The family of this 68-nucleotide sequence from Takifugu rubripes is "mir-29 microRNA precursor family".
Pairs were carried over by alignment from the consensus structure, which was predicted with PFOLD.
About the family: This family represents the microRNA (miRNA) precursors mir-29.
Taxonomically the source falls in Takifugu (Eukaryota, Opisthokonta, Eumetazoa, Chordata).
Rfam 15.1 lists 3,328 matches to the family in 787 species.
Its family is annotated with RISC complex and gene silencing by miRNA in the Gene Ontology.
It is one of the family's seed sequences.
On this family, see Ambros, Cell 2001: "microRNAs: tiny regulators with great potential".
[Rfam]
RNA sequence: GGAAGCUGGUUUCAGGUGGUGGCUUAGAGUAUUGUCAUCUAUCUAGCACCAUUUGAAAUCAGUGUUCU
Numbered sequence: 001g002g003a004a005g006c007u008g009g010u011u012u013c014a015g016g017u018g019g020u021g022g023c024u025u026a027g028a029g030u031a032u033u034g035u036c037a038u039c040u041a042u043c044u045a046g047c048a049c050c051a052u053u054u055g056a057a058a059u060c061a062g063u064g065u066u067c068u
Base pairs, nucleotide, nucleotide: 001068002067003066004065005063006062007061008060009059010058011057012056013055014054016052017051018050019049020048021047025045026044027043028042